The family of this 87-nucleotide RNA from Blautia faecicola is "NiCo (Nickel/Cobalt) riboswitch aptamer". Gene Ontology terms of the family: metal ion homeostasis and cobalt ion binding. It scores 72 bits against the family's covariance model. The literature on the family includes a 2015 paper in Mol Cell by Furukawa et al., "Bacterial riboswitches cooperatively bind Ni(2+) or Co(2+) ions and control expression of heavy metal transporters". The base pairs follow the family's consensus structure, which is taken from published work. The family is grouped with related families in Rfam's "NiCo_riboswitches". Taxonomically the source falls in Blautia (Bacteria, Bacillati, Clostridia, Lachnospiraceae).
RNA sequence: ACAGUACAAACUGAGCAGGCGAUGGAGAUCCAUGGGGCCGGGCCCGGUGAGGGCAGCAGAUGAGAAAGCGACAUCUGUGGGACAGUA
Number, nucleotide and partner (000 for none) at each position: 001a000002c000003a000004g000005u000006a000007c000008a000009a000010a086011c085012u084013g083014a000015g000016c081017a000018g039019g038020c037021g000022a033023u032024g031025g030026a000027g000028a000029u000030c025031c024032a023033u022034g000035g000036g000037g020038c019039c018040g000041g000042g054043c053044c052045c051046g000047g000048u000049g000050a000051g045052g044053g043054c042055a000056g078057c077058a076059g075060a074061u073062g000063a000064g000065a000066a000067a000068g000069c000070g000071a000072c000073a061074u060075c059076u058077g057078u056079g000080g000081g016082a000083c013084a012085g011086u010087a000